[Rfam]
RNA: Plastid-psbA-1 3UTR RNA
RNA sequence: UCGAAGCUCCAUCUACAAAUGGAUAAGACUUAGGUCUUAGUAUAUAUGAGUUAUUGAAAAUAAAUAAGAAAGGAGCAAUAAUCAACUUUUAUCAAGAGGGUUGACAUUGCUCCUUU
Number, nucleotide and partner (000 for none) at each position: 001u000002c000003g000004a000005a000006g000007c000008u023009c022010c021011a020012u019013c000014u000015a000016c000017a000018a000019a012020u011021g010022g009023a008024u000025a000026a000027g000028a000029c000030u000031u000032a000033g000034g000035u000036c000037u000038u000039a000040g000041u000042a000043u000044a000045u000046a000047u000048g000049a000050g000051u000052u000053a000054u000055u000056g000057a000058a000059a000060a000061u000062a000063a000064a000065u000066a000067a000068g000069a116070a115071a114072g113073g112074a111075g110076c109077a108078a107079u106080a000081a000082u000083c000084a101085a000086c098087u097088u096089u095090u094091a000092u000093c000094a090095a089096g088097a087098g086099g000100g000101u084102u000103g000104a000105c000106a079107u078108u077109g076110c075111u074112c073113c072114u071115u070116u069